Annotation
Rfam assigns this 231-nucleotide sequence from Feifania hominis to the family "T-box leader". It is annotated as a cis-regulatory leader.
RNA sequence: CUAACAGCAAUGAAAAAGAGAGUAGGCAGCGACCGCGAAAGCCAGAGAGAGGGCGUGACUGCGCUGAGAGCGCCCUUAUGAGCCAACCUGCCGAAGUUCACUUUUGAGCUGCCGCUCUGAAACGAUUUACGCGGUAGGGGCGGCCGACUGCCUGCGUUAAGGGCUCCAGAGUGCCCGCGCGCCGCGCGGGAACAAGGGUGGUACCGCGAGACUCAAGUCCUCGUCCCUUUU
Numbered sequence: 001c002u003a004a005c006a007g008c009a010a011u012g013a014a015a016a017a018g019a020g021a022g023u024a025g026g027c028a029g030c031g032a033c034c035g036c037g038a039a040a041g042c043c044a045g046a047g048a049g050a051g052g053g054c055g056u057g058a059c060u061g062c063g064c065u066g067a068g069a070g071c072g073c074c075c076u077u078a079u080g081a082g083c084c085a086a087c088c089u090g091c092c093g094a095a096g097u098u099c100a101c102u103u104u105u106g107a108g109c110u111g112c113c114g115c116u117c118u119g120a121a122a123c124g125a126u127u128u129a130c131g132c133g134g135u136a137g138g139g140g141c142g143g144c145c146g147a148c149u150g151c152c153u154g155c156g157u158u159a160a161g162g163g164c165u166c167c168a169g170a171g172u173g174c175c176c177g178c179g180c181g182c183c184g185c186g187c188g189g190g191a192a193c194a195a196g197g198g199u200g201g202u203a204c205c206g207c208g209a210g211a212c213u214c215a216a217g218u219c220c221u222c223g224u225c226c227c228u229u230u231u
Stems, first nucleotide, its partner, number of pairs: 007109002015104004025092005039077002051075006112143007145156002174190007195228004206224005